[Rfam]
RNA sequence: CUGAAAUGAUGAGAUUCCACUUCACUGGUCCGUGUUUCUGAAGUCCAUGAUAACGGUGGAAGUUCUGAUUGG
Numbered sequence: 001c002u003g004a005a006a007u008g009a010u011g012a013g014a015u016u017c018c019a020c021u022u023c024a025c026u027g028g029u030c031c032g033u034g035u036u037u038c039u040g041a042a043g044u045c046c047a048u049g050a051u052a053a054c055g056g057u058g059g060a061a062g063u064u065c066u067g068a069u070u071g072g
Stems, first nucleotide, its partner, number of pairs: 001072004